[Rfam]
RNA sequence: UGCCUUAAAGUGUUGCCUGUUCAUUGCUGAUCAGAUGAAUGUGGCGUCAACUAGGGCAUACAUUAUUACAUAAGAUGGCUGCUGUAAGGUGUUUACUCUGUCCCUUCCAGAAGUUCCAUGUUAUGGACAUUA
Dot-bracket structure: .((((((...((.((((((((((((........)))))))).)))).))..))))))...........((((..((((....(.......(..........).......).....))))..)))).......

The family of this 132-nucleotide RNA from Triplophysa tibetana is "Small nucleolar RNA SNORA13".
The family's consensus secondary structure was predicted with CMfinder.
Lineage of the source: Eukaryota > Craniata > Euteleostomi > Osteoglossocephalai > Triplophysa.
The family has 50 seed sequences and 1,034 matches in Rfam 15.1.